[Rfam]
RNA sequence: GCUGCGAAGCGUAUUCUGUGUCUCAAAAGGACAUGGAGCGUUUGGACACGCUCGCGGCGGUGGGUUGCAAUAGCUCAAUUGGAAGAGCGUCAGAAUUGAUAAUCUGAAGGCUGUGGAUUCGAACUCCACUCGCAUUUAAACGCAAAGUCGUGUCCGACAGCACAUGAAAGUGGCUUAAUUCUGCCCACGGCGACGUGAAGGCAGACAUCCAAAGCUCGCAAAGCUGAGGGUGUUGAUUGGAAUCCGCACGUAGAGGCUGCAACCUCGAACGGCUCGCAAGGUCGGCGGUAGGACGAUAAUCGAGUAGUGUGUUGUGUCAUGGAGGAAGCCUUCCUUGGCGAAAGCCUAAAACGGCAGCCACGGUGCCCGACUCCUUUGAGGGGUGGAUAAGCCAGAAACGCUGGGACGCAAGCCCGGCGAUAACCUGAGCGAACGGGGUGCUAUUAAAGCUGUAAUCUCAAGCU
Numbered sequence: 001g002c003u004g005c006g007a008a009g010c011g012u013a014u015u016c017u018g019u020g021u022c023u024c025a026a027a028a029g030g031a032c033a034u035g036g037a038g039c040g041u042u043u044g045g046a047c048a049c050g051c052u053c054g055c056g057g058c059g060g061u062g063g064g065u066u067g068c069a070a071u072a073g074c075u076c077a078a079u080u081g082g083a084a085g086a087g088c089g090u091c092a093g094a095a096u097u098g099a100u101a102a103u104c105u106g107a108a109g110g111c112u113g114u115g116g117a118u119u120c121g122a123a124c125u126c127c128a129c130u131c132g133c134a135u136u137u138a139a140a141c142g143c144a145a146a147g148u149c150g151u152g153u154c155c156g157a158c159a160g161c162a163c164a165u166g167a168a169a170g171u172g173g174c175u176u177a178a179u180u181c182u183g184c185c186c187a188c189g190g191c192g193a194c195g196u197g198a199a200g201g202c203a204g205a206c207a208u209c210c211a212a213a214g215c216u217c218g219c220a221a222a223g224c225u226g227a228g229g230g231u232g233u234u235g236a237u238u239g240g241a242a243u244c245c246g247c248a249c250g251u252a253g254a255g256g257c258u259g260c261a262a263c264c265u266c267g268a269a270c271g272g273c274u275c276g277c278a279a280g281g282u283c284g285g286c287g288g289u290a291g292g293a294c295g296a297u298a299a300u301c302g303a304g305u306a307g308u309g310u311g312u313u314g315u316g317u318c319a320u321g322g323a324g325g326a327a328g329c330c331u332u333c334c335u336u337g338g339c340g341a342a343a344g345c346c347u348a349a350a351a352c353g354g355c356a357g358c359c360a361c362g363g364u365g366c367c368c369g370a371c372u373c374c375u376u377u378g379a380g381g382g383g384u385g386g387a388u389a390a391g392c393c394a395g396a397a398a399c400g401c402u403g404g405g406a407c408g409c410a411a412g413c414c415c416g417g418c419g420a421u422a423a424c425c426u427g428a429g430c431g432a433a434c435g436g437g438g439u440g441c442u443a444u445u446a447a448a449g450c451u452g453u454a455a456u457c458u459c460a461a462g463c464u
Stems, first nucleotide, its partner, number of pairs: 001058007008042005015037009044155007142219002157315009171360005180205006186197003206232005213225004235301005249287003253266004270284002273281002328355003332351001362442003366438003370384006386457003391430001393427003449463003
Giant, ornate, lake- and Lactobacillales-derived (GOLLD) RNA: a 464-nucleotide sequence from Novimethylophilus kurashikiensis. Lineage of the source: Bacteria > Pseudomonadota > Betaproteobacteria > Methylophilaceae > Novimethylophilus. Pairs were carried over by alignment from the consensus structure, which is taken from published work. For this family Rfam cites "Exceptional structured noncoding RNAs revealed by bacterial metagenome analysis" (Weinberg et al., Nature, 2009).